[Rfam]
RNA sequence: GCGGAUGGCUGGAUGACCGCGUGGGGGGCGACCCCUGCGAGGAAAGUCCGGACUCCAUGAAGGAAGGGUGCCGGGUAACGCCCGGCGGGGGCAACCCCAGGGAAAGCGCCACAGAGAAGAGUCUGCCAUCGGUCACACGAUGGUCAGGGUGAAACGGUGGGGUAAGAGCCCACCGCGGACUUGGCAACAAGGACGGCACGGCAAGCCCCACCCGGAGCAAUGCCGAAUAGGGGCCUCGCGUGGAAAGGUUCGCUGCCAUCUGGCGCGGAGACCUCCACAGGGACACUUCAGCCUGAGAAGGCCCGGGUUGGCAGCUAGACCCCGUCGGUAACGGCGGGGGCAGAGGAAUGGUCAUCCAGAGGGGGCAACCCCUUGGACAGAAUCCGGCUUACAGGCCAUCCGCGCAA
Numbered sequence: 001g002c003g004g005a006u007g008g009c010u011g012g013a014u015g016a017c018c019g020c021g022u023g024g025g026g027g028g029c030g031a032c033c034c035c036u037g038c039g040a041g042g043a044a045a046g047u048c049c050g051g052a053c054u055c056c057a058u059g060a061a062g063g064a065a066g067g068g069u070g071c072c073g074g075g076u077a078a079c080g081c082c083c084g085g086c087g088g089g090g091g092c093a094a095c096c097c098c099a100g101g102g103a104a105a106g107c108g109c110c111a112c113a114g115a116g117a118a119g120a121g122u123c124u125g126c127c128a129u130c131g132g133u134c135a136c137a138c139g140a141u142g143g144u145c146a147g148g149g150u151g152a153a154a155c156g157g158u159g160g161g162g163u164a165a166g167a168g169c170c171c172a173c174c175g176c177g178g179a180c181u182u183g184g185c186a187a188c189a190a191g192g193a194c195g196g197c198a199c200g201g202c203a204a205g206c207c208c209c210a211c212c213c214g215g216a217g218c219a220a221u222g223c224c225g226a227a228u229a230g231g232g233g234c235c236u237c238g239c240g241u242g243g244a245a246a247g248g249u250u251c252g253c254u255g256c257c258a259u260c261u262g263g264c265g266c267g268g269a270g271a272c273c274u275c276c277a278c279a280g281g282g283a284c285a286c287u288u289c290a291g292c293c294u295g296a297g298a299a300g301g302c303c304c305g306g307g308u309u310g311g312c313a314g315c316u317a318g319a320c321c322c323c324g325u326c327g328g329u330a331a332c333g334g335c336g337g338g339g340g341c342a343g344a345g346g347a348a349u350g351g352u353c354a355u356c357c358a359g360a361g362g363g364g365g366c367a368a369c370c371c372c373u374u375g376g377a378c379a380g381a382a383u384c385c386g387g388c389u390u391a392c393a394g395g396c397c398a399u400c401c402g403c404g405c406a407a
Stems, first nucleotide, its partner, number of pairs: 001403010011392001012356007020039008044390003048387005053217004063292001066213005071085005086100001087098004101208002106206002108202003123148002125144007156174006175197001176195002180191004221313004231304006287297003320339008
A member of the RNA family "Bacterial RNase P class A" from Gemmobacter fulvus, 407 nucleotides long.
Pairs were carried over by alignment from the consensus structure, which is taken from published work.
Ribonuclease P (RNase P) is a ubiquitous endoribonuclease, found in archaea, bacteria and eukarya as well as chloroplasts and mitochondria.
A search with the family's covariance model found it, with a score of 284 bits.
Lineage of the source: Bacteria > Alphaproteobacteria > Rhodobacterales > Paracoccaceae > Gemmobacter.
The family's RNA type in Rfam is ribozyme.